[Rfam]
RNA sequence: CCUCUGGUCAUGGCCGCCCGGGCCGCCUAUAUGAGCGGCGUCACCUCGGUGACUAUGGCGAUAAACGCCGUGUGGAAUAAGUGUUGCGGACCCGGGGGCAGUGCCCGGCGUCUCCACCAAUAUGCUCAGGCCCUUUAUCGGGGGCGGCGGAUGGGGACGACACAGGCUCGACGCGCACGGUAAAGACACGGUUUUUGCCCGGCAUUGUACCGCCGUUAUCGGGCUAAAUCACAAGUGCCAACGAUAACAGCCGUGAGGCUGUGGCGCUCGCUGCCUAAUAGGUAAGCGCGGUUCGGGGGGCACCGGGCAACAGAAGCCCCCCACU
Numbered sequence: 001c002c003u004c005u006g007g008u009c010a011u012g013g014c015c016g017c018c019c020g021g022g023c024c025g026c027c028u029a030u031a032u033g034a035g036c037g038g039c040g041u042c043a044c045c046u047c048g049g050u051g052a053c054u055a056u057g058g059c060g061a062u063a064a065a066c067g068c069c070g071u072g073u074g075g076a077a078u079a080a081g082u083g084u085u086g087c088g089g090a091c092c093c094g095g096g097g098g099c100a101g102u103g104c105c106c107g108g109c110g111u112c113u114c115c116a117c118c119a120a121u122a123u124g125c126u127c128a129g130g131c132c133c134u135u136u137a138u139c140g141g142g143g144g145c146g147g148c149g150g151a152u153g154g155g156g157a158c159g160a161c162a163c164a165g166g167c168u169c170g171a172c173g174c175g176c177a178c179g180g181u182a183a184a185g186a187c188a189c190g191g192u193u194u195u196u197g198c199c200c201g202g203c204a205u206u207g208u209a210c211c212g213c214c215g216u217u218a219u220c221g222g223g224c225u226a227a228a229u230c231a232c233a234a235g236u237g238c239c240a241a242c243g244a245u246a247a248c249a250g251c252c253g254u255g256a257g258g259c260u261g262u263g264g265c266g267c268u269c270g271c272u273g274c275c276u277a278a279u280a281g282g283u284a285a286g287c288g289c290g291g292u293u294c295g296g297g298g299g300g301c302a303c304c305g306g307g308c309a310a311c312a313g314a315a316g317c318c319c320c321c322c323a324c325u
Stems, first nucleotide, its partner, number of pairs: 040053005057199005067192007082177003086174003092108005109159007200215004205226001207224001210222002289305004295322006
RNA: Alphaproteobacteria transfer-messenger RNA